The record is a 128-nucleotide RNA sequence from Ancylostoma caninum, which matches "Nematode snoRNA ceN36-1" in Rfam.
RNA sequence: UUCCGCUCUCCAGCUCCGUGCGAGGUGUUCGUGCUCGGUGCGGCGUUUCUAUGAGCGAAAACUAAAGAAGAAUGACGAUUAUUGGUAUUUCUUCGUGGAAUAUCGAUCACUAUAAGCUUCGUACAAAA
Numbered sequence: 001u002u003c004c005g006c007u008c009u010c011c012a013g014c015u016c017c018g019u020g021c022g023a024g025g026u027g028u029u030c031g032u033g034c035u036c037g038g039u040g041c042g043g044c045g046u047u048u049c050u051a052u053g054a055g056c057g058a059a060a061a062c063u064a065a066a067g068a069a070g071a072a073u074g075a076c077g078a079u080u081a082u083u084g085g086u087a088u089u090u091c092u093u094c095g096u097g098g099a100a101u102a103u104c105g106a107u108c109a110c111u112a113u114a115a116g117c118u119u120c121g122u123a124c125a126a127a128a
Stems, first nucleotide, its partner, number of pairs: 004057005012047003016043006023035002081107004086102003090099003
It scores 60 bits against the family's covariance model. On this family, see Jia et al., BMC Mol Biol 2007: "Systematic identification of non-coding RNA 2,2,7-trimethylguanosine cap structures in Caenorhabditis elegans".